[Rfam]
RNA sequence: GGGCAGUGAUGACAGAAAACAUUUCUCGAUGCUGAUAUUAUUGCGACCAAUAUUUAGUAUACAUAUAUCAUGUAUACCAUCAUGAUGACAGCAUUUGUGCGUGUCUGAGCCCA
Numbered sequence: 001g002g003g004c005a006g007u008g009a010u011g012a013c014a015g016a017a018a019a020c021a022u023u024u025c026u027c028g029a030u031g032c033u034g035a036u037a038u039u040a041u042u043g044c045g046a047c048c049a050a051u052a053u054u055u056a057g058u059a060u061a062c063a064u065a066u067a068u069c070a071u072g073u074a075u076a077c078c079a080u081c082a083u084g085a086u087g088a089c090a091g092c093a094u095u096u097g098u099g100c101g102u103g104u105c106u107g108a109g110c111c112c113a
Stems, first nucleotide, its partner, number of pairs: 001112004
Annotation:
Rfam assigns this 113-nucleotide RNA from Carnegiea gigantea to the family "small nucleolar RNA snoR126". It scores 73 bits against the family's covariance model. Lineage of the source: Eukaryota > Spermatophyta > Caryophyllales > Cactineae > Carnegiea. Rfam 15.1 lists 423 matches to the family in 200 species. The base pairs follow the family's consensus structure, which was predicted with RNAalifold. On this family, see Chen and Wu, Nucleic Acids Res 2009: "Mining small RNA sequencing data: a new approach to identify small nucleolar RNAs in Arabidopsis".